[Rfam]
RNA sequence: CUAGCACUUUCACAGAUCCUGCCCCAGCAAUGGGGACAGGAUUUGGUAGCUGGUGCUGAGAGAAAACCCUUGAUUGCGUCCUUGCCCCUGGUACUGUAGCAGUAGCAGGUGUUACUCAAUGGAACAGAG
Number, nucleotide and partner (000 for none) at each position: 001c000002u000003a057004g056005c055006a054007c053008u052009u000010u000011c000012a000013c045014a044015g043016a000017u041018c040019c039020u038021g000022c035023c034024c033025c032026a000027g000028c000029a000030a000031u000032g025033g024034g023035g022036a000037c000038a020039g019040g018041a017042u000043u015044u014045g013046g000047u000048a000049g000050c000051u000052g008053g007054u006055g005056c004057u003058g000059a000060g000061a000062g000063a000064a000065a000066a000067c000068c122069c121070u119071u118072g117073a116074u000075u114076g113077c000078g112079u111080c000081c000082u108083u107084g106085c105086c000087c000088c102089u101090g100091g000092u000093a000094c000095u000096g000097u000098a000099g000100c090101a089102g088103u000104a000105g085106c084107a083108g082109g000110u000111g079112u078113u076114a075115c000116u073117c072118a071119a070120u000121g069122g068123a000124a000125c000126a000127g000128a000129g000